[Rfam]
RNA sequence: UAGCGAGACUCUGGAAAGUGCCCCGUCGCGUCGGUGGGGCCGCCGAAGGUGUAACCCUGCACUUGGCCGCGUUGGCCGGGAACCGGGGGAAAGCUCUCAGGCUUCCGUGACAGAGGGGGCACC
Numbered sequence: 001u002a003g004c005g006a007g008a009c010u011c012u013g014g015a016a017a018g019u020g021c022c023c024c025g026u027c028g029c030g031u032c033g034g035u036g037g038g039g040c041c042g043c044c045g046a047a048g049g050u051g052u053a054a055c056c057c058u059g060c061a062c063u064u065g066g067c068c069g070c071g072u073u074g075g076c077c078g079g080g081a082a083c084c085g086g087g088g089g090a091a092a093g094c095u096c097u098c099a100g101g102c103u104u105c106c107g108u109g110a111c112a113g114a115g116g117g118g119g120c121a122c123c
Stems, first nucleotide, its partner, number of pairs: 009115005020040007042102003045098002049096001051094001055089004
A member of the RNA family "Glycine riboswitch aptamer" from Novosphingobium sp. 9U, 123 nucleotides long. Rfam's curators write: This family represents the bacterial glycine riboswitch. Taxonomically the source falls in Novosphingobium (Bacteria, Pseudomonadota, Alphaproteobacteria, Sphingomonadales). The match comes from Rfam's covariance-model search (48 bits). The family is grouped with related families in Rfam's "Glycine riboswitch clan".